[Rfam]
Nucleotides: 090
Base pairs, nucleotide, nucleotide: 001089002088003087004086005085006084007083010026011025012024028044029043030042031041032040066082067081068080069079070078
Number, partner (000 for none) and nucleotide at each position: 001089g002088g003087u004086g005085a006084g007083g008000u009000g010026g011025c012024c013000g014000a015000g016000a017000g018000g019000c020000u021000g022000a023000a024012g025011g026010c027000g028044c029043u030042c031041c032040c033000c034000u035000g036000c037000u038000a039000a040032g041031g042030g043029a044028g045000u046000a047000u048000g049000c050000g051000g052000u053000c054000a055000a056000a057000a058000g059000c060000u061000g062000c063000a064000u065000c066082c067081g068080g069079g070078g071000u072000u073000c074000g075000a076000a077000u078070c079069c080068c081067c082066g083007c084006c085005u086004c087003a088002c089001c090000g

Rfam assigns this 90-nucleotide RNA from Escherichia coli to the family "tRNA". Pairs were carried over by alignment from the consensus structure, which is taken from published work.